[Rfam]
RNA: mir-358 microRNA precursor family
RNA sequence: ACUCUCCAUACGGAUUGAUACCCGACUUCCGGAUACCAACUGUCAUAUAUCCAACUCAUUUCGUCAAUUGGUAUCCUUGGUCGUGGUCUCAAUCCGUACACGGCGAGAGCGUU
Dot-bracket structure: .(((.((...((((((((.((((((((...(((((((((.((.(..................).)).)))))))))..))))).))).)))))))).....)).)))......